Shown here is a 350-nucleotide RNA from Eubacterium sp. CAG:603, a member of the family "Bacterial RNase P class A". The family's RNA type in Rfam is ribozyme. NCBI's taxonomy places the organism under Bacteria, Bacillati, Clostridia, Eubacteriaceae, Eubacterium. The base pairs follow the family's consensus structure, which is taken from published work.
RNA sequence: UGAGUAGGACAGAUAAUCGUGGCUGCUAUUGGCGAAAGUACGCAGGUAAGGAAAGUCCGGGCUUCACAGGGCAGGAUGCCAGAUAACAUCUGGUAGAGGUGACUCUAAGGCCAGUGCAACAGAAAUAAACCGCCAUAUUCUAUAUGGUAAGGGUGGAAAGGCAGAGUAAGAGACUACCGCUGUAAUGGUAACAUUACAGGCACAUGUAAACCCCAUCCGAAGCAAGACCGAACAGAAAACAAUUAGUUGCCCGCUAAGUUUUCGGGUAGGUCGCUUGAGCCUAUUGGCGACAAUAGGACUAGAUAGAUGAUUGUCUAAAACAUAACCCGGCUUACAGUUCUGCUCAUUAC
Numbered sequence: 001u002g003a004g005u006a007g008g009a010c011a012g013a014u015a016a017u018c019g020u021g022g023c024u025g026c027u028a029u030u031g032g033c034g035a036a037a038g039u040a041c042g043c044a045g046g047u048a049a050g051g052a053a054a055g056u057c058c059g060g061g062c063u064u065c066a067c068a069g070g071g072c073a074g075g076a077u078g079c080c081a082g083a084u085a086a087c088a089u090c091u092g093g094u095a096g097a098g099g100u101g102a103c104u105c106u107a108a109g110g111c112c113a114g115u116g117c118a119a120c121a122g123a124a125a126u127a128a129a130c131c132g133c134c135a136u137a138u139u140c141u142a143u144a145u146g147g148u149a150a151g152g153g154u155g156g157a158a159a160g161g162c163a164g165a166g167u168a169a170g171a172g173a174c175u176a177c178c179g180c181u182g183u184a185a186u187g188g189u190a191a192c193a194u195u196a197c198a199g200g201c202a203c204a205u206g207u208a209a210a211c212c213c214c215a216u217c218c219g220a221a222g223c224a225a226g227a228c229c230g231a232a233c234a235g236a237a238a239a240c241a242a243u244u245a246g247u248u249g250c251c252c253g254c255u256a257a258g259u260u261u262u263c264g265g266g267u268a269g270g271u272c273g274c275u276u277g278a279g280c281c282u283a284u285u286g287g288c289g290a291c292a293a294u295a296g297g298a299c300u301a302g303a304u305a306g307a308u309g310a311u312u313g314u315c316u317a318a319a320a321c322a323u324a325a326c327c328c329g330g331c332u333u334a335c336a337g338u339u340c341u342g343c344u345c346a347u348u349a350c
Stems, first nucleotide, its partner, number of pairs: 001346010012315007020048002023045004053333003057330005062222004069252004074218005079093005094108001095106004109213002114211002116207003130152002132148007160178002163175002179201001180199008226272004235263006243257005280297007
The match comes from Rfam's covariance-model search (300 bits).